[Rfam]
RNA sequence: CGCGUGUCCGAGGGGUGUCCCAUGUGGGGCUGAGAUGGCGCGAGCCGAACCCUUUGAACCUGAUCCGGGUCAUGCCGGCGAAGGGACGGAAAGGGUGCCGCCG
Numbered sequence: 001c002g003c004g005u006g007u008c009c010g011a012g013g014g015g016u017g018u019c020c021c022a023u024g025u026g027g028g029g030c031u032g033a034g035a036u037g038g039c040g041c042g043a044g045c046c047g048a049a050c051c052c053u054u055u056g057a058a059c060c061u062g063a064u065c066c067g068g069g070u071c072a073u074g075c076c077g078g079c080g081a082a083g084g085g086a087c088g089g090a091a092a093g094g095g096u097g098c099c100g101c102c103g
Stems, first nucleotide, its partner, number of pairs: 007090004011053004016047001017030005037046003059084003065078004
RNA: TPP riboswitch aptamer (THI element)